[Rfam]
The family of this 75-nucleotide RNA sequence from Alligator sinensis is "Mammalian CPEB3 ribozyme". The match comes from Rfam's covariance-model search (58 bits). The source organism's lineage runs through Eukaryota, Metazoa, Bilateria, Vertebrata and Alligator. The family's consensus secondary structure is taken from published work.
RNA sequence: AGUGCAAGUUCAAGGCCAUACAGGAAGCAUUCAUGAUGCGGCCUGUCAGAUUCCAUUGAAUCUGUAAAUUCUGCU
Number, nucleotide and partner (000 for none) at each position: 001a000002g000003u000004g000005c000006a000007a000008g000009u000010u000011c000012a000013a000014g043015g042016c041017c040018a000019u000020a075021c000022a000023g072024g071025a070026a069027g039028c038029a037030u000031u000032c000033a000034u000035g000036a000037u029038g028039c027040g017041g016042c015043c014044u000045g000046u000047c064048a063049g062050a061051u060052u059053c058054c000055a000056u000057u000058g053059a052060a051061u050062c049063u048064g047065u000066a000067a000068a000069u026070u025071c024072u023073g000074c000075u020